[Rfam]
RNA: Nuclear RNase P
RNA sequence: UCCUCUUCAACGCUGCGUUUCUAUGCUACAAACGGAGAGCCUGCGCAAGCAGUGCUUUCGAGCCAUACCAUCUAGCAUAUGAGAAAUUCGGAGAAUCGGCUUCACUCAUGGCUCGUCCAUCUGCGCUCUCGGGCGUCCGAUGGGUUGCGAGCCCUGCCGGUGACGGCUUGGCGCGAUCUCGCGUCUGUAAUUGGCAUCAGAAAAGCAGGGCCUGGGAUCGCCUCGUGGCAACGCGGGUGUCGGUUUCCCAGGUAUCCUCUGGGAGAGCCGUUACGAAGCUUGUGCGCAACACUUGAGUGCAAUACGCAGCGUGCGGUCUUGCUUCUCUUCUUGGACGGGCGAGACCACACAAUUCGAUUCCGAUUAUCCUGUUGAGGA
Numbered sequence: 001u002c003c004u005c006u007u008c009a010a011c012g013c014u015g016c017g018u019u020u021c022u023a024u025g026c027u028a029c030a031a032a033c034g035g036a037g038a039g040c041c042u043g044c045g046c047a048a049g050c051a052g053u054g055c056u057u058u059c060g061a062g063c064c065a066u067a068c069c070a071u072c073u074a075g076c077a078u079a080u081g082a083g084a085a086a087u088u089c090g091g092a093g094a095a096u097c098g099g100c101u102u103c104a105c106u107c108a109u110g111g112c113u114c115g116u117c118c119a120u121c122u123g124c125g126c127u128c129u130c131g132g133g134c135g136u137c138c139g140a141u142g143g144g145u146u147g148c149g150a151g152c153c154c155u156g157c158c159g160g161u162g163a164c165g166g167c168u169u170g171g172c173g174c175g176a177u178c179u180c181g182c183g184u185c186u187g188u189a190a191u192u193g194g195c196a197u198c199a200g201a202a203a204a205g206c207a208g209g210g211c212c213u214g215g216g217a218u219c220g221c222c223u224c225g226u227g228g229c230a231a232c233g234c235g236g237g238u239g240u241c242g243g244u245u246u247c248c249c250a251g252g253u254a255u256c257c258u259c260u261g262g263g264a265g266a267g268c269c270g271u272u273a274c275g276a277a278g279c280u281u282g283u284g285c286g287c288a289a290c291a292c293u294u295g296a297g298u299g300c301a302a303u304a305c306g307c308a309g310c311g312u313g314c315g316g317u318c319u320u321g322c323u324u325c326u327c328u329u330c331u332u333g334g335a336c337g338g339g340c341g342a343g344a345c346c347a348c349a350c351a352a353u354u355c356g357a358u359u360c361c362g363a364u365u366a367u368c369c370u371g372u373u374g375a376g377g378a
Stems, first nucleotide, its partner, number of pairs: 001378004008371002012310007022079004035059006089362005099279003156167004170185005187274004193269003207258003311350003315346010